[Rfam]
Record summary: Rfam assigns this 80-nucleotide RNA from Sphenodon punctatus to the family "mir-2970 microRNA precursor family". Rfam links the family to the GO terms miRNA-mediated post-transcriptional gene silencing and RISC complex. The family's consensus secondary structure was predicted with RNAalifold. On this family, see Gunaratne et al., BMC Genomics 2011: "Song exposure regulates known and novel microRNAs in the zebra finch auditory forebrain". Taxonomically the source falls in Sphenodon (Eukaryota, Craniata, Euteleostomi, Lepidosauria).
RNA sequence: GCCACUGCAGACAGUCAGCAGUUGGUCUGGCGUGAGCACUGGUUCUCAGAUCACCUCUUGGCUGUGGGUGGUGCCAGGAG
Numbered sequence: 001g002c003c004a005c006u007g008c009a010g011a012c013a014g015u016c017a018g019c020a021g022u023u024g025g026u027c028u029g030g031c032g033u034g035a036g037c038a039c040u041g042g043u044u045c046u047c048a049g050a051u052c053a054c055c056u057c058u059u060g061g062c063u064g065u066g067g068g069u070g071g072u073g074c075c076a077g078g079a080g
Base pairs, nucleotide, nucleotide: 003073004072005071006070007069008068011065012064013063014062015061016060017059018058020056021055023053024052025051026050027049028048029047030046